[Rfam]
RNA sequence: CAUAACCCUCGUUAGGUGAGGCUCCUGUGCGGGAGACAUGCUGAUGCCCAAAAAUGUCCAAAGACGCCAAUGGGUGAACAGAAACGGUCGACAUAAGGUCGUUUUUAAUGCAGCUGAGCCACUGGCUCUAUGCCCCACAGUGCUAAAGCUCUACGAAUGGAGGUUGAA
Number, nucleotide and partner (000 for none) at each position: 001c000002a000003u000004a000005a164006c163007c162008c000009u160010c159011g154012u153013u096014a000015g150016g149017u148018g000019a000020g144021g143022c142023u000024c000025c140026u139027g138028u137029g136030c000031g135032g134033g133034a000035g000036a000037c000038a000039u000040g114041c113042u112043g111044a000045u000046g075047c074048c073049c072050a071051a000052a000053a000054a000055u066056g065057u064058c063059c000060a000061a000062a000063g058064a057065c056066g055067c000068c000069a000070a000071u050072g049073g048074g047075u046076g000077a000078a000079c000080a000081g105082a104083a103084a102085c000086g000087g099088u098089c097090g000091a000092c000093a000094u000095a000096a013097g089098g088099u087100c000101g000102u084103u083104u082105u081106u000107a000108a000109u000110g000111c043112a042113g041114c040115u000116g128117a127118g126119c000120c000121a000122c000123u000124g000125g000126c118127u117128c116129u000130a000131u000132g000133c033134c032135c031136c029137a028138c027139a026140g025141u000142g022143c021144u020145a000146a000147a000148g017149c016150u015151c000152u000153a012154c011155g000156a000157a000158u000159g010160g009161a000162g007163g006164u005165u000166g000167a000168a000
M-box riboswitch aptamer (ykoK leader): a 168-nucleotide RNA sequence from Salisediminibacterium beveridgei. The base pairs follow the family's consensus structure. About the family: M-box riboswitch, also know as ykoK leader is described as a metaloregulatory RNA that sense divalent metals and function as a genetic control element of genes related to divalent metal transport in bacteria. The match comes from Rfam's covariance-model search (133 bits). The literature on the family includes a 2004 paper in Proc Natl Acad Sci U S A by Barrick et al., "New RNA motifs suggest an expanded scope for riboswitches in bacterial genetic control". NCBI's taxonomy places the organism under Bacteria, Bacillati, Bacilli, Bacillaceae, Salisediminibacterium. Gene Ontology terms of the family: response to magnesium ion and regulation of gene expression.